[Rfam]
RNA sequence: UGUCCCUUUUAAAAGACAGUCCAGUGAGGCUGACAAAGGGAGGUUAAACAGGAAGCGAUUUUAGCCUGCUUCUUUUUGUACCCUCUUUGUCUAGAUAUGGACAGAGGGUUUUUUUA
Numbered sequence: 001u002g003u004c005c006c007u008u009u010u011a012a013a014a015g016a017c018a019g020u021c022c023a024g025u026g027a028g029g030c031u032g033a034c035a036a037a038g039g040g041a042g043g044u045u046a047a048a049c050a051g052g053a054a055g056c057g058a059u060u061u062u063a064g065c066c067u068g069c070u071u072c073u074u075u076u077u078g079u080a081c082c083c084u085c086u087u088u089g090u091c092u093a094g095a096u097a098u099g100g101a102c103a104g105a106g107g108g109u110u111u112u113u114u115u116a
Base pairs, nucleotide, nucleotide: 003041004040005039006038007037008036009035017032018031019030020029021028047077048076050074051073052072053071054070055069056068057067059064080111083108084107085106086105087104088103089102090101091100092099093098
RNA: PyrR binding site